[Rfam]
RNA sequence: UGCAAGUAUUUUACGAUUAAGAAGUAAUUGUCUCUUGUACACAUUGUGCAUAAAUUU
Numbered sequence: 001u002g003c004a005a006g007u008a009u010u011u012u013a014c015g016a017u018u019a020a021g022a023a024g025u026a027a028u029u030g031u032c033u034c035u036u037g038u039a040c041a042c043a044u045u046g047u048g049c050a051u052a053a054a055u056u057u
Stems, first nucleotide, its partner, number of pairs: 018037005024031002
Source information:
The family of this 57-nucleotide sequence from Malus domestica is "Plastid-rps18 3UTR RNA". About the family: Plastid rps18 is a non-coding RNA (ncRNA) present in plastids. Lineage of the source: Eukaryota > Spermatophyta > eudicotyledons > Amygdaloideae > Malus.